Source information
mir-199 microRNA precursor family: a 59-nucleotide sequence from Canis lupus. The family has 83 seed sequences and 1,828 matches in Rfam 15.1. The organism belongs to Canis lupus, within Eukaryota. It is one of the family's seed sequences. About the family: This family consists of the microRNA (miRNA) precursor mir-199 which appears to be specific to humans. Animal miRNAs are transcribed as ~70nt precursors and subsequently processed by the Dicer enzyme to give a ~22nt product.
RNA sequence: CCAGUGUUCAGACUACCUGUUCAGGACAAUGCCGUUGUACAGUAGUCUGCACAUUGGUU
Numbered sequence: 001c002c003a004g005u006g007u008u009c010a011g012a013c014u015a016c017c018u019g020u021u022c023a024g025g026a027c028a029a030u031g032c033c034g035u036u037g038u039a040c041a042g043u044a045g046u047c048u049g050c051a052c053a054u055u056g057g058u059u
Stems, first nucleotide, its partner, number of pairs: 001057007009049007017042004022037002